RNA sequence: AAUUUAAAACAAUUUUGCUUUCGUAUAUGUCUGAGAAUAUGGCUCAGAUGUCUCUACCAGGCAACCGUAAAUUGCUUGACUACGAAGGGGAAAGUUUUAGGA
Numbered sequence: 001a002a003u004u005u006a007a008a009a010c011a012a013u014u015u016u017g018c019u020u021u022c023g024u025a026u027a028u029g030u031c032u033g034a035g036a037a038u039a040u041g042g043c044u045c046a047g048a049u050g051u052c053u054c055u056a057c058c059a060g061g062c063a064a065c066c067g068u069a070a071a072u073u074g075c076u077u078g079a080c081u082a083c084g085a086a087g088g089g090g091a092a093a094g095u096u097u098u099a100g101g102a
Base pairs, nucleotide, nucleotide: 018088019087020086021085022084023083024082025081029049030048031047032046033045034044035043058078059077060076061075062074063073064072
Shown here is a 102-nucleotide RNA from Vulcanibacillus modesticaldus, a member of the family "Purine riboswitch aptamer". Lineage of the source: Bacteria > Bacillati > Caryophanales > Bacillaceae > Vulcanibacillus. The base pairs follow the family's consensus structure, which is taken from published work.